[Rfam]
RNA sequence: UGUAUUCGAGUGUAUUCGACUGUAUUCAUGGCGUGAAAUGGAGGAUUACAAUGUUUUUUAAAAUGGAAAGUGAAUCAAUUAAUAUUAUAAACUCCU
Numbered sequence: 001u002g003u004a005u006u007c008g009a010g011u012g013u014a015u016u017c018g019a020c021u022g023u024a025u026u027c028a029u030g031g032c033g034u035g036a037a038a039u040g041g042a043g044g045a046u047u048a049c050a051a052u053g054u055u056u057u058u059u060a061a062a063a064u065g066g067a068a069a070g071u072g073a074a075u076c077a078a079u080u081a082a083u084a085u086u087a088u089a090a091a092c093u094c095c096u
Stems, first nucleotide, its partner, number of pairs: 002095001004093001009088001012085002015082002018080002021077002024075006032065003035057006
RNA: MIR6152 microRNA precursor family